[Rfam]
RNA: Lysine riboswitch aptamer
RNA sequence: CGGUGAGGUAGAGGUUGCAGUCAUUAAGAGUAUCAUUUCUGGAGAUGUAGUGGCAUUGAUGAAGGAAUGAGAAAGGAAUGAUUGCCGAAGUAAGUUGUGUCCACCAUGCACACUUGCUGGGUCUGCAUUUAAUAAGUGCAGAACUGUCACAAACGUUUCGUUUGUGGAGAGCUAUCGAGAGG
Numbered sequence: 001c002g003g004u005g006a007g008g009u010a011g012a013g014g015u016u017g018c019a020g021u022c023a024u025u026a027a028g029a030g031u032a033u034c035a036u037u038u039c040u041g042g043a044g045a046u047g048u049a050g051u052g053g054c055a056u057u058g059a060u061g062a063a064g065g066a067a068u069g070a071g072a073a074a075g076g077a078a079u080g081a082u083u084g085c086c087g088a089a090g091u092a093a094g095u096u097g098u099g100u101c102c103a104c105c106a107u108g109c110a111c112a113c114u115u116g117c118u119g120g121g122u123c124u125g126c127a128u129u130u131a132a133u134a135a136g137u138g139c140a141g142a143a144c145u146g147u148c149a150c151a152a153a154c155g156u157u158u159c160g161u162u163u164g165u166g167g168a169g170a171g172c173u174a175u176c177g178a179g180a181g182g
Stems, first nucleotide, its partner, number of pairs: 007176005017085009033070008089118006096112005119145002122142008147167007